[Rfam]
RNA: RNase MRP
Nucleotides: 254
Stems, first nucleotide, its partner, number of pairs: 002254001004252008014214006022066007037052005071239002074237004086098004099113005116186003123179003128174001130170003138165003147159004216221001
Number, partner (000 for none) and nucleotide at each position: 001000g002254a003000u004252c005251a006250u007249u008248c009247a010246g011245a012000a013000g014214g015213u016212u017211u018210g019209c020000u021000u022066u023065c024064u025063g026062g027061g028060c029000u030000a031000c032000a033000u034000g035000c036000g037052g038051a039050g040049a041048a042000c043000g044000u045000a046000g047000u048041u049040u050039c051038u052037c053000a054000a055000c056000g057000a058000u059000c060028g061027c062026c063025c064024a065023g066022g067000g068000a069000a070000a071239a072238g073000u074237c075236c076235c077234c078000g079000g080000a081000c082000c083000c084000g085000a086098g087097g088096c089095a090000g091000a092000a093000a094000g095089u096088g097087c098086c099113c100112u101111g102110g103109c104000g105000u106000g107000a108000g109103g110102c111101c112100a113099g114000a115000a116186a117185c118184g119000g120000c121000u122000c123179g124178u125177g126000u127000c128174u129000c130170c131169c132168c133000g134000c135000u136000a137000c138165a139164g140163c141000a142000a143000a144000g145000a146000c147159g148158c149157u150156c151000a152000u153000c154000u155000g156150g157149a158148g159147c160000a161000g162000a163140g164139c165138u166000c167000g168132g169131g170130g171000a172000u173000u174128a175000a176000u177125c178124a179123c180000u181000u182000g183000u184118c185117g186116u187000c188000u189000u190000u191000g192000u193000c194000a195000g196000g197000a198000a199000c200000a201000a202000g203000a204000g205000a206000a207000a208000u209019g210018c211017a212016g213015g214014c215000a216221u217000g218000c219000g220000c221216a222000g223000u224000g225000a226000a227000a228000c229000a230000g231000a232000a233000c234077g235076g236075g237074g238072c239071u240000c241000a242000c243000u244000c245011u246010c247009u248008g249007a250006a251005u252004g253000c254002u